[Rfam]
RNA sequence: GUGGAGAAAACCGAAAAUCCAAAAUAACAGAGUAGGUA
Numbered sequence: 001g002u003g004g005a006g007a008a009a010a011c012c013g014a015a016a017a018u019c020c021a022a023a024a025u026a027a028c029a030g031a032g033u034a035g036g037u038a
Stems, first nucleotide, its partner, number of pairs: 002021004010037003